Rfam assigns this 53-nucleotide RNA from Azospira inquinata to the family "Xanthine riboswitch aptamer (NMT1 RNA)". The match comes from Rfam's covariance-model search (48 bits). Gene Ontology term of the family: purine nucleobase binding.
RNA sequence: GCCCAGAGUAGAAGCAGUCAGCGGGCCUUUCCCCGCGGGUCAUUGCUCCGGCC
Numbered sequence: 001g002c003c004c005a006g007a008g009u010a011g012a013a014g015c016a017g018u019c020a021g022c023g024g025g026c027c028u029u030u031c032c033c034c035g036c037g038g039g040u041c042a043u044u045g046c047u048c049c050g051g052c053c
Stems, first nucleotide, its partner, number of pairs: 006048005015038001019039001021036005